[Rfam]
Notes
This 86-nucleotide RNA from Anaerococcus lactolyticus belongs to the Rfam family "THF (Tetrahydrofolate) riboswitch aptamer". The organism belongs to Anaerococcus lactolyticus, within Bacteria.
RNA sequence: AUCAGAGUAGAUAAAGAGCGAUUAGUGCUGGAAAAUGGGUUGUUGUUUCCAGACGAAACUUCCGAUUCUUUAUCGCAACCGCUGAC
Numbered sequence: 001a002u003c004a005g006a007g008u009a010g011a012u013a014a015a016g017a018g019c020g021a022u023u024a025g026u027g028c029u030g031g032a033a034a035a036u037g038g039g040u041u042g043u044u045g046u047u048u049c050c051a052g053a054c055g056a057a058a059c060u061u062c063c064g065a066u067u068c069u070u071u072a073u074c075g076c077a078a079c080c081g082c083u084g085a086c
Base pairs, nucleotide, nucleotide: 002085003084004083005082010074011073012072013071014070015069016068017067018066019064020063025054026053028052029051030050031049032048033047034046038080039079040078041077042076

Rfam describes the family as follows. Tetrahydrofolate (THF) riboswitch was first reported for Ames et al. as an RNA motif in 5' untranslated (5'-UTR)regions of folate transport and biosynthesis genes in Firmicutes genomes. Pairs were carried over by alignment from the consensus structure, which is taken from published work.